[Rfam]
Molybdenum/Tungsten riboswitch aptamer (Moco RNA motif): a 150-nucleotide RNA sequence from Arsenophonus nasoniae. The family's consensus secondary structure is taken from published work.
RNA sequence: UGGUGUUAUUAACUCCUAGCCUUUUUACCUAAGUUUGUGAUCUUUAUUGUUUAAAUAGGGUAUUAAGGCCGUGGCAUUUUCAGCCACUAGGGUGCGAGGUAGAAAUGCCUGCAUCUCCCGUAUUUGGAAAGGCGUUAUUAUGACUCAACU
Numbered sequence: 001u002g003g004u005g006u007u008a009u010u011a012a013c014u015c016c017u018a019g020c021c022u023u024u025u026u027a028c029c030u031a032a033g034u035u036u037g038u039g040a041u042c043u044u045u046a047u048u049g050u051u052u053a054a055a056u057a058g059g060g061u062a063u064u065a066a067g068g069c070c071g072u073g074g075c076a077u078u079u080u081c082a083g084c085c086a087c088u089a090g091g092g093u094g095c096g097a098g099g100u101a102g103a104a105a106u107g108c109c110u111g112c113a114u115c116u117c118c119c120g121u122a123u124u125u126g127g128a129a130a131g132g133c134g135u136u137a138u139u140a141u142g143a144c145u146c147a148a149c150u
Stems, first nucleotide, its partner, number of pairs: 003144002011136003015132002019069005026062004033056004071087005090116006097110005117127002